[Rfam]
This 75-nucleotide RNA from Crocodylus porosus belongs to the Rfam family "Mammalian CPEB3 ribozyme". It scores 35 bits against the family's covariance model. Rfam 15.1 lists 5,706 matches to the family in 197 species.

RNA sequence: GUUGCAAGUUUGAGGCCAUAGCAGAAGUGCUUGUGGCACAGCCUUAUCAGGUUCAACAAAUUUGCAAAUUCUGCU
Numbered sequence: 001g002u003u004g005c006a007a008g009u010u011u012g013a014g015g016c017c018a019u020a021g022c023a024g025a026a027g028u029g030c031u032u033g034u035g036g037c038a039c040a041g042c043c044u045u046a047u048c049a050g051g052u053u054c055a056a057c058a059a060a061u062u063u064g065c066a067a068a069u070u071c072u073g074c075u
Base pairs, nucleotide, nucleotide: 013044014043015042016041020075021074022073023072024071025070026069027039028038029037048064049063050062051061052060053059